[Rfam]
RNA sequence: AAGUCGGUGACGACGGGGUGAAGGAAGUGGGGAAGCAAGUCUUUCGAGCCUACGAACAGAAACUUGAUAUAAGGCUAAAUGGUGGAUAAGGGCGCAACUCAAACCGAAGUCCAAAGGGUAAACGUAAACCAAGACAGUAAAUCAAGAGGUUGUGAAAGUGAAAAAGAUAUGUAU
Numbered sequence: 001a002a003g004u005c006g007g008u009g010a011c012g013a014c015g016g017g018g019u020g021a022a023g024g025a026a027g028u029g030g031g032g033a034a035g036c037a038a039g040u041c042u043u044u045c046g047a048g049c050c051u052a053c054g055a056a057c058a059g060a061a062a063c064u065u066g067a068u069a070u071a072a073g074g075c076u077a078a079a080u081g082g083u084g085g086a087u088a089a090g091g092g093c094g095c096a097a098c099u100c101a102a103a104c105c106g107a108a109g110u111c112c113a114a115a116g117g118g119u120a121a122a123c124g125u126a127a128a129c130c131a132a133g134a135c136a137g138u139a140a141a142u143c144a145a146g147a148g149g150u151u152g153u154g155a156a157a158g159u160g161a162a163a164a165a166g167a168u169a170u171g172u173a174u
Stems, first nucleotide, its partner, number of pairs: 003014004027174003031170001036166001041158004046153001047151005063146006074138003080131004084112004090105002

Rfam assigns this 174-nucleotide sequence from Erysipelotrichaceae bacterium MTC7 to the family "Group II catalytic intron D1-D4-3".